[Rfam]
Background
MIR6151 microRNA precursor family: a 71-nucleotide RNA from Nicotiana sylvestris. The source organism's lineage runs through Eukaryota, Solanales, Nicotianoideae, Nicotianeae and Nicotiana. Gene Ontology terms of the family: RISC complex and miRNA-mediated post-transcriptional gene silencing. Pairs were carried over by alignment from the consensus structure, which was predicted with RNAalifold. Rfam 15.1 lists 930 matches to the family in 3 species.
RNA sequence: AUUCGUUGGAUGAACGUGAGACAUUGGAUUGAUUUCGUUCAAUCUGAGCCCCACAGUCAUCCGAGGUUCGU
Numbered sequence: 001a002u003u004c005g006u007u008g009g010a011u012g013a014a015c016g017u018g019a020g021a022c023a024u025u026g027g028a029u030u031g032a033u034u035u036c037g038u039u040c041a042a043u044c045u046g047a048g049c050c051c052c053a054c055a056g057u058c059a060u061c062c063g064a065g066g067u068u069c070g071u
Base pairs, nucleotide, nucleotide: 004066006064007063009061010060011059012058013057016054017053018052020050022048024047025046026045027044028043029042030041031040032039